Rfam assigns this 95-nucleotide RNA from Triticum turgidum to the family "MIR9783 microRNA precursor family".
The organism belongs to Triticum turgidum, within Eukaryota.
Rfam 15.1 lists 12 matches to the family in 4 species.
The base pairs follow the family's consensus structure, which was predicted with RNAalifold.
RNA sequence: GAUUUUUUUUGAAGCACCGGUGCCUAUUUCUAUAGGAGAGACGCUUAGUUAAGCGUCUAUCCUGUACAAAUAAGCACCGGUGCUUAAGAAAAAUA
Number, nucleotide and partner (000 for none) at each position: 001g000002a000003u093004u092005u091006u090007u089008u088009u087010u086011g085012a084013a000014g083015c082016a081017c080018c079019g078020g000021u000022g075023c074024c000025u072026a071027u070028u069029u068030c000031u066032a065033u064034a063035g062036g061037a000038g000039a058040g057041a056042c055043g054044c053045u000046u000047a000048g000049u000050u000051a000052a000053g044054c043055g042056u041057c040058u039059a000060u000061c036062c035063u034064g033065u032066a031067c000068a029069a028070a027071u026072a025073a000074g023075c022076a000077c000078c019079g018080g017081u016082g015083c014084u012085u011086a010087a009088g008089a007090a006091a005092a004093a003094u000095a000